[Rfam]
RNA sequence: GUUGUCAGAUUCACCUAAAUCCACAUGUGUUGGGAUGGAUUAGGGUAAAAUUUAGUUCAAGUUUCACUCCAAUCUACUUUAACACAUGUGGAUUGAUGUAAAUCCGACU
Numbered sequence: 001g002u003u004g005u006c007a008g009a010u011u012c013a014c015c016u017a018a019a020u021c022c023a024c025a026u027g028u029g030u031u032g033g034g035a036u037g038g039a040u041u042a043g044g045g046u047a048a049a050a051u052u053u054a055g056u057u058c059a060a061g062u063u064u065c066a067c068u069c070c071a072a073u074c075u076a077c078u079u080u081a082a083c084a085c086a087u088g089u090g091g092a093u094u095g096a097u098g099u100a101a102a103u104c105c106g107a108c109u
Stems, first nucleotide, its partner, number of pairs: 004108003008104004013099002016096001018094015036076006043069001045067002